About this RNA
The family of this 153-nucleotide sequence from Maritimibacter sp. 55A14 is "Ruegeria cis2 sRNA". Gene Ontology term of the family: regulation of gene expression.
Nucleotides: 153
Stems, first nucleotide, its partner, number of pairs: 002035001004033001006032004014024002038056003041052002064153001066151003071081003086147001088145006099133001102129001103127003107123002110119003
Number, partner (000 for none) and nucleotide at each position: 001000g002035u003000u004033g005000g006032u007031g008030u009029u010000g011000u012000g013000g014024g015023g016000g017000u018000u019000g020000u021000a022000g023015u024014u025000g026000a027000u028000g029009a030008a031007u032006g033004c034000c035002g036000c037000c038056c039055c040054g041052c042051g043000c044000g045000c046000c047000u048000g049000g050000u051042c052041g053000a054040u055039g056038g057000u058000g059000u060000g061000a062000a063000a064153g065000a066151g067150c068149g069000g070000g071081u072080u073079c074000c075000a076000c077000g078000a079073g080072a081071a082000g083000a084000a085000g086147g087000g088145c089144a090143g091142c092141a093140u094000c095000g096000a097000c098000g099133c100000g101000g102129g103127c104126a105125g106000c107123g108122u109000g110119u111118u112117g113000g114000c115000c116000a117112c118111g119110a120000a121000c122108a123107u124000c125105u126104u127103g128000c129102c130000g131000g132000a133099g134000g135000u136000g137000a138000u139000c140093a141092u142091g143090u144089u145088g146000g147086c148000c149068c150067g151066c152000a153064u
Overview: NCBI's taxonomy places the organism under Bacteria, Pseudomonadota, Rhodobacterales, Roseobacteraceae, Maritimibacter. By type it is a small RNA. On this family, see Rivers et al., Front Microbiol 2016: "Experimental Identification of Small Non-Coding RNAs in the Model Marine Bacterium Ruegeria pomeroyi DSS-3". The match comes from Rfam's covariance-model search (68 bits).